[Rfam]
A member of the RNA family "tRNA" from Pedobacter nutrimenti, 74 nucleotides long. Transfer RNA (tRNA) molecules are approximately 80 nucleotides in length. A search with the family's covariance model found it, with a score of 68 bits. The family's RNA type in Rfam is transfer RNA.
RNA sequence: GGGCCUAUAGCUCAGUUGGUUAGAGUAGGAGACUCAUAAUCUCUUGGUCGCUGGUUCGAGCCCAGCUGGGCCCA
Numbered sequence: 001g002g003g004c005c006u007a008u009a010g011c012u013c014a015g016u017u018g019g020u021u022a023g024a025g026u027a028g029g030a031g032a033c034u035c036a037u038a039a040u041c042u043c044u045u046g047g048u049c050g051c052u053g054g055u056u057c058g059a060g061c062c063c064a065g066c067u068g069g070g071c072c073c074a
Stems, first nucleotide, its partner, number of pairs: 001073007010026004028044005050066005